RNA sequence: UACAUGCAUCAAGAUAGGUCUUUUUUAAAGACCUGCCAACCGAGCUUCAAAGCCACGAUGGUAAGUUCCAACAAAAGGAAGAUGUGUCCGUAAAGGAAAAAACGAUCAACCGCCU
Numbered sequence: 001u002a003c004a005u006g007c008a009u010c011a012a013g014a015u016a017g018g019u020c021u022u023u024u025u026u027a028a029a030g031a032c033c034u035g036c037c038a039a040c041c042g043a044g045c046u047u048c049a050a051a052g053c054c055a056c057g058a059u060g061g062u063a064a065g066u067u068c069c070a071a072c073a074a075a076a077g078g079a080a081g082a083u084g085u086g087u088c089c090g091u092a093a094a095g096g097a098a099a100a101a102a103c104g105a106u107c108a109a110c111c112g113c114c115u
Base pairs, nucleotide, nucleotide: 006085007084008083009082010081017033018032019031020030021029022028023027035062036061037060041057042056044053045052051106087097088096089095

The record is a 115-nucleotide RNA sequence, which matches "SAM-I/IV (S-adenosyl methionine) riboswitch aptamer" in Rfam. Rfam links the family to the GO terms S-adenosylmethionine metabolic process and regulation of gene expression.